Overview:
The family of this 116-nucleotide RNA from Salinimicrobium marinum is "Group II catalytic intron D1-D4-2". About the family: Group II introns are found in rRNA, tRNA and mRNA of organelles in fungi, plants and protists, and also in mRNA in bacteria.
RNA sequence: GAGGAUGGGACCCUCGAAGCCGGCAUACAGGUGCAGGCUUCAAACCGCCUUAUGCGGCUCUAUUUAAAAGGUAGGGUUGUGAGCAAUAAGGAAAAGGUAUUAUAUAGAUAUCAGGU
Numbered sequence: 001g002a003g004g005a006u007g008g009g010a011c012c013c014u015c016g017a018a019g020c021c022g023g024c025a026u027a028c029a030g031g032u033g034c035a036g037g038c039u040u041c042a043a044a045c046c047g048c049c050u051u052a053u054g055c056g057g058c059u060c061u062a063u064u065u066a067a068a069a070g071g072u073a074g075g076g077u078u079g080u081g082a083g084c085a086a087u088a089a090g091g092a093a094a095a096g097g098u099a100u101u102a103u104a105u106a107g108a109u110a111u112c113a114g115g116u
Stems, first nucleotide, its partner, number of pairs: 001015004016041006023034004046115001048091006054080002057077003061073004096112006
About this RNA:
NCBI's taxonomy places the organism under Bacteria, Flavobacteriia, Flavobacteriales, Flavobacteriaceae, Salinimicrobium. Its family is annotated with Group II intron splicing in the Gene Ontology. Pairs were carried over by alignment from the consensus structure.